[Rfam]
RNA sequence: UGACCCUUAUUAAGCCGAGGGUCACCUAGCCAAUUGACGUUGUUAGUGAAUUUUAUUGUUCACACGUAUAAGUCCCAGCCACACUGCUUUGUGGCUGGUUUUUUCUUU
Numbered sequence: 001u002g003a004c005c006c007u008u009a010u011u012a013a014g015c016c017g018a019g020g021g022u023c024a025c026c027u028a029g030c031c032a033a034u035u036g037a038c039g040u041u042g043u044u045a046g047u048g049a050a051u052u053u054u055a056u057u058g059u060u061c062a063c064a065c066g067u068a069u070a071a072g073u074c075c076c077a078g079c080c081a082c083a084c085u086g087c088u089u090u091g092u093g094g095c096u097g098g099u100u101u102u103u104u105c106u107u108u
Base pairs, nucleotide, nucleotide: 001024002023003022004021005020006019040071041070042069043068046063047062048061049060050059051058075098076097077096078095079094080093081092082091

Rfam assigns this 108-nucleotide sequence from Vibrio astriarenae to the family "Qrr RNA".
Lineage of the source: Bacteria > Pseudomonadati > Pseudomonadota > Vibrionaceae > Vibrio.
It is annotated as a small RNA.